[Rfam]
Nucleotides: 116
Base pairs, nucleotide, nucleotide: 001049002048004046011042012041013040014039015038016037018035019034020033021032022031024083025082026081027080064111065110066109088099089098090097091096
Number, partner (000 for none) and nucleotide at each position: 001049a002048a003000a004046c005000g006000u007000u008000g009000a010000a011042g012041u013040a014039a015038g016037g017000g018035a019034g020033u021032g022031c023000g024083c025082c026081g027080g028000c029000a030000c031022g032021c033020a034019u035018u036000g037016u038015c039014u040013u041012a042011u043000g044000g045000a046004g047000c048002u049001u050000u051000c052000a053000g054000u055000a056000g057000g058000g059000g060000u061000u062000g063000c064111g065110c066109a067000g068000u069000g070000a071000a072000a073000c074000c075000u076000c077000a078000a079000a080027c081026c082025g083024g084000u085000g086000u087000a088099g089098g090097c091096c092000g093000u094000a095000a096091g097090g098089c099088u100000g101000a102000a103000a104000g105000a106000a107000a108000a109066u110065g111064c112000c113000c114000g115000g116000u

The record is a 116-nucleotide sequence from Agathobaculum faecis, which matches "drum RNA" in Rfam. Rfam's curators write: Firmicutes, Bacteroidetes (1 example), Proteobacteria (2 examples), Spirochaetes (2 examples). A search with the family's covariance model found it, with a score of 87 bits.